[Rfam]
RNA sequence: CGAUGGGGUAGAGGUGCAGGAUUUAUUAGUAAGCUGUGUGAGGAUGACAACGGUGAUCAUAGCUGAAAGGAGAUUCUGCCGAAGUAAAAUACAUUCGUCAAAAAUAUAUUUUACUGGGGUUACUUUGAAUAAGAGUAACACUGUCAUUAUGGGGUAUAGAAUCAUACCGGCAUAAUGGGGAGCUACAGUUCGU
Numbered sequence: 001c002g003a004u005g006g007g008g009u010a011g012a013g014g015u016g017c018a019g020g021a022u023u024u025a026u027u028a029g030u031a032a033g034c035u036g037u038g039u040g041a042g043g044a045u046g047a048c049a050a051c052g053g054u055g056a057u058c059a060u061a062g063c064u065g066a067a068a069g070g071a072g073a074u075u076c077u078g079c080c081g082a083a084g085u086a087a088a089a090u091a092c093a094u095u096c097g098u099c100a101a102a103a104a105u106a107u108a109u110u111u112u113a114c115u116g117g118g119g120u121u122a123c124u125u126u127g128a129a130u131a132a133g134a135g136u137a138a139c140a141c142u143g144u145c146a147u148u149a150u151g152g153g154g155u156a157u158a159g160a161a162u163c164a165u166a167c168c169g170g171c172a173u174a175a176u177g178g179g180g181a182g183c184u185a186c187a188g189u190u191c192g193u
Stems, first nucleotide, its partner, number of pairs: 008186004016079009032064007083115009093105002116142002119139008144178007
RNA: Lysine riboswitch aptamer
Organism: Cytobacillus horneckiae